Shown here is a 667-nucleotide RNA sequence, a member of the family "ROOL RNA".
It is annotated as a small RNA.
It is one of the family's seed sequences.
RNA sequence: ACUUUGUAAUGUUUAUAGACAUAGCCUUGUGUAUGACUGUCUAAUCAACAGUGCAAGGAAUUAGUUGUGCUCUCAAAAGGAGUUAUGUGAAGGAAAGAUUAAAUGGAUACAUUUAAUUAAGUACAAUUACUACAAAAUCUAUAAUGACUGGGUAAGUCACCCGUAAGAAGGAUGAGUUAGUAGAGAUAUAAUAAUAUCUUACAGUUCAACUGAUGUGCAAGUUUAUAAGUAGACGUAGUGUGAAAGACUUAUCGCUAACGCAAUAGACGUUAUCUCGAAAGGAUAAAAGAAACCAAGAAGAUAUACAAAUUGGUAACUUGUAUAAGCCCUUGGUAAUACCAAAUAAGUUAGUUCCUCAUGAUGUCGUUGAAAAAUGACUAUAAGAUAAGUUGAAUUCGAUAGUAGCCCAAGAGGAAUCAAAUGAGUAAAACAAGUAUUAUAGGUAAAUAUUAUGUUUUUCUAUCUGAAUGAUUGUGCCUUGAAAAAGGUGGGUGAGGUCUGUGGGUAAAAAUUAAUUCCCAUCUGGUUUUGGAUUUUCUUCGGAAAAUUGGUGCAAGAAGCGUGGAGUUGCUAACCAUUGCUCAGACUUGUAUCGCCAGUAGCACGAUAACGAUAUUUAUGAAUGUUGUAAGGUGAAUAAAAGCCUAUGAUUUGUGAACAUUCCAAA
Dot-bracket structure: ........(...((...((.....(((((......(((((.......))))).))))).((((((........................((..(..(((((((((....)))))))))...)....))(((((...((((.............................))))..).))))...(((((....)))))..........))))))........((...((...(.....(...((.((((((((((((((..........((((((.....)))))).....((((((....(((((((..[[[[...)))))))....))))))...]]]].....))))))[[[[[.....(((((......))))).....))))))))...))..(.....(((((.]]]]]...............................................[[[[......................)))))....).....((.............))...(((.......((((.....))))....(....((..(.((((.........))).)..)]]]].))....).)))...........)...)..))...)).......((((........)))).....))...))...).....